[Rfam]
RNA sequence: CUUUCUACACAGGUUGGGAUCAGUUGCAAUGCUGUGUUUACAUUUGGUAUUGCACUUGUCCCGGCCUGUUGAGUUUGG
Numbered sequence: 001c002u003u004u005c006u007a008c009a010c011a012g013g014u015u016g017g018g019a020u021c022a023g024u025u026g027c028a029a030u031g032c033u034g035u036g037u038u039u040a041c042a043u044u045u046g047g048u049a050u051u052g053c054a055c056u057u058g059u060c061c062c063g064g065c066c067u068g069u070u071g072a073g074u075u076u077g078g
Stems, first nucleotide, its partner, number of pairs: 005073002009069006016062005022056003026053009